[Rfam]
RNA sequence: UUUAGCGACAUCGACCUGCUCAUUCUGCGCGAGCAGUUUGCCAACGGCUUCCUGAAUGGACGGAUGCCAGCUCACCGCGCGAUCGACGGCGUUAUUCAACGUUAAGGUACCCGGCGCGGCGGGGUCGAGCGGCAGAUCCACUUUGCCGGAUAACGACGGUAGCUCCUGCUGUUCGUGCAAGGUCUGCGAAGAGAUAAACCUUGGCGUCUCUUCGGCGUGAAGGGCGGCUGAGCAAAGGCAGCUCGCCAGCCCCCAUGCGAUAGGUGUUAACUUUCCCAUUGUCGAUCCCUUUUAAAAUAGCGCAGGUGUAUUUGUUAUUACCCCGGGCGUCUUCGCGCCCGGGGUUUUGUU
Number, nucleotide and partner (000 for none) at each position: 001u000002u000003u269004a000005g267006c266007g000008a000009c191010a000011u189012c188013g187014a000015c000016c000017u035018g034019c033020u032021c031022a000023u000024u000025c000026u000027g000028c000029g000030c000031g021032a020033g019034c018035a017036g057037u056038u055039u054040g053041c000042c000043a000044a050045c000046g000047g000048c000049u000050u044051c000052c000053u040054g039055a038056a037057u036058g000059g000060a000061c186062g185063g184064a183065u182066g133067c132068c131069a000070g100071c000072u098073c000074a096075c000076c000077g092078c091079g090080c089081g000082a000083u000084c000085g000086a000087c000088g000089g080090c079091g078092u077093u000094a000095u000096u074097c000098a072099a000100c070101g000102u128103u127104a000105a125106g000107g000108u121109a000110c119111c118112c000113g000114g000115c000116g000117c000118g111119g110120c000121g108122g000123g000124g000125u105126c000127g103128a102129g000130c000131g068132g067133c066134a000135g000136a000137u000138c000139c177140a176141c175142u000143u000144u000145g172146c171147c168148g167149g160150a000151u158152a000153a000154c000155g000156a000157c000158g151159g000160u149161a000162g000163c000164u000165c000166c000167u148168g147169c000170u000171g146172u145173u000174c000175g141176u140177g139178c000179a000180a000181g000182g065183u064184c063185u062186g061187c013188g012189a011190a000191g009192a000193g000194a000195u231196a000197a229198a000199c227200c226201u000202u224203g000204g000205c222206g000207u000208c219209u000210c000211u000212u000213c000214g000215g000216c000217g000218u000219g208220a000221a000222g205223g000224g202225c000226g200227g199228c000229u197230g000231a195232g000233c000234a000235a000236a000237g000238g265239c264240a000241g000242c000243u000244c259245g258246c257247c000248a000249g000250c000251c000252c000253c000254c000255a000256u000257g246258c245259g244260a000261u000262a000263g000264g239265u238266g006267u005268u000269a003270a000271c000272u000273u000274u000275c000276c000277c000278a000279u000280u000281g000282u000283c000284g000285a000286u000287c000288c000289c000290u000291u000292u000293u000294a000295a000296a000297a000298u000299a000300g000301c000302g000303c000304a000305g000306g000307u000308g000309u000310a000311u000312u000313u000314g000315u000316u000317a000318u000319u000320a345321c344322c343323c342324c341325g340326g339327g338328c337329g336330u335331c000332u000333u000334c000335g330336c329337g328338c327339c326340c325341g324342g323343g322344g321345u320346u000347u000348u000349g000350u000351u000

Description:
The record is a 351-nucleotide RNA from Enterobacteriaceae bacterium strain FGI 57, which matches "isrL Hfq binding RNA" in Rfam. On this family, see Padalon-Brauch et al., Nucleic Acids Res 2008: "Small RNAs encoded within genetic islands of Salmonella typhimurium show host-induced expression and role in virulence". Taxonomically the source falls in Enterobacteriaceae (Bacteria, Pseudomonadati, Pseudomonadota, Gammaproteobacteria).